[Rfam]
RNA sequence: UUUAGGAGCCAAUGAUGUUUUUAUUCAUGUCUGAACCUGUCUGAAGCAUUGCCAUGAUGCAACCUGUUGCUGAGGCUUCUUUGCCA
Numbered sequence: 001u002u003u004a005g006g007a008g009c010c011a012a013u014g015a016u017g018u019u020u021u022u023a024u025u026c027a028u029g030u031c032u033g034a035a036c037c038u039g040u041c042u043g044a045a046g047c048a049u050u051g052c053c054a055u056g057a058u059g060c061a062a063c064c065u066g067u068u069g070c071u072g073a074g075g076c077u078u079c080u081u082u083g084c085c086a
Stems, first nucleotide, its partner, number of pairs: 004080007
RNA: Small nucleolar RNA SNORD91 family
Organism: Heterocephalus glaber